Record summary:
Rfam assigns this 72-nucleotide sequence from Anolis carolinensis to the family "mir-34 microRNA precursor family". The sequence is in the family's curated seed alignment. The source organism's lineage runs through Eukaryota, Eumetazoa, Euteleostomi, Sauropsida and Anolis. The family's consensus secondary structure was predicted with RNAalifold. Its family is annotated with miRNA-mediated post-transcriptional gene silencing and RISC complex in the Gene Ontology.
[Rfam]
RNA sequence: UCUUUGGCAGUGUCUUAGCUGGUUGUUGUGCGCAGUGAUUGAGGAAGCAAUCAGCAAGAAUACUGCCCCAGA
Dot-bracket structure: (((..((.(((((.((.(.((((((((..................)))))))).).)).))))).))..)))